This 107-nucleotide RNA sequence from Canis lupus belongs to the Rfam family "mir-8834 microRNA precursor family".
The family's consensus secondary structure was predicted with RNAalifold.
RNA sequence: AGGAGGAACAACCACAGUGGCGGCGGCCAGCCCUGGAGCCCUGGAUUCAGCUCCCACAGUGCCUCCGGAGCUGUCAGUGUGCAGGGGCCUGGAUGCUCCAGGGGCGG
Numbered sequence: 001a002g003g004a005g006g007a008a009c010a011a012c013c014a015c016a017g018u019g020g021c022g023g024c025g026g027c028c029a030g031c032c033c034u035g036g037a038g039c040c041c042u043g044g045a046u047u048c049a050g051c052u053c054c055c056a057c058a059g060u061g062c063c064u065c066c067g068g069a070g071c072u073g074u075c076a077g078u079g080u081g082c083a084g085g086g087g088c089c090u091g092g093a094u095g096c097u098c099c100a101g102g103g104g105c106g107g
Stems, first nucleotide, its partner, number of pairs: 002099004007094001009091002012087002020078002023075001025074001029072003033068005041059003